[Rfam]
RNA sequence: UCGCAUUCUUAAACCCUCUUGGUGGCUUCACUUUAAGUGCUGCUAAGAUAUGAGUGAAUGCUAUAGAAACUGCAGGGGGGUCCAAAGGGCUGUGCUUCUCCUGUGGCUCAGGCUUAUUUCUUACCUGCAACAUCU
Numbered sequence: 001u002c003g004c005a006u007u008c009u010u011a012a013a014c015c016c017u018c019u020u021g022g023u024g025g026c027u028u029c030a031c032u033u034u035a036a037g038u039g040c041u042g043c044u045a046a047g048a049u050a051u052g053a054g055u056g057a058a059u060g061c062u063a064u065a066g067a068a069a070c071u072g073c074a075g076g077g078g079g080g081u082c083c084a085a086a087g088g089g090c091u092g093u094g095c096u097u098c099u100c101c102u103g104u105g106g107c108u109c110a111g112g113c114u115u116a117u118u119u120c121u122u123a124c125c126u127g128c129a130a131c132a133u134c135u
Stems, first nucleotide, its partner, number of pairs: 003061004008054004017048006024041003065135003071129006086115003090111003094107002098103001